[Rfam]
RNA sequence: CGACGUCGUGCGGGAGAGACUCCGCCCCGGAGCGCCGAAGGAGCAACAACUCCCCAGAAAACUCUCAGGCACCGCUACCGCGCGACAGCA
Dot-bracket structure: .....((((((((......((((.....)))).(((((..(((...(.........)....))))).))).......)))))))).....
Numbered sequence: 001c002g003a004c005g006u007c008g009u010g011c012g013g014g015a016g017a018g019a020c021u022c023c024g025c026c027c028c029g030g031a032g033c034g035c036c037g038a039a040g041g042a043g044c045a046a047c048a049a050c051u052c053c054c055c056a057g058a059a060a061a062c063u064c065u066c067a068g069g070c071a072c073c074g075c076u077a078c079c080g081c082g083c084g085a086c087a088g089c090a
Stems, first nucleotide, its partner, number of pairs: 006085008020032004034070003037066002041064003047057001